[Rfam]
RNA sequence: AUUAAAUCAAAGCAACACCGUCGUAUAAUUUUGGGAAUAAGGCCCAUAAGUUUCUACCAGACCACCGUAAAUCGGUCUGACUACGUCGGUGGAUGGGUAGAGU
Numbered sequence: 001a002u003u004a005a006a007u008c009a010a011a012g013c014a015a016c017a018c019c020g021u022c023g024u025a026u027a028a029u030u031u032u033g034g035g036a037a038u039a040a041g042g043c044c045c046a047u048a049a050g051u052u053u054c055u056a057c058c059a060g061a062c063c064a065c066c067g068u069a070a071a072u073c074g075g076u077c078u079g080a081c082u083a084c085g086u087c088g089g090u091g092g093a094u095g096g097g098u099a100g101a102g103u
Stems, first nucleotide, its partner, number of pairs: 018089003022085004029049002032046004058079006064072001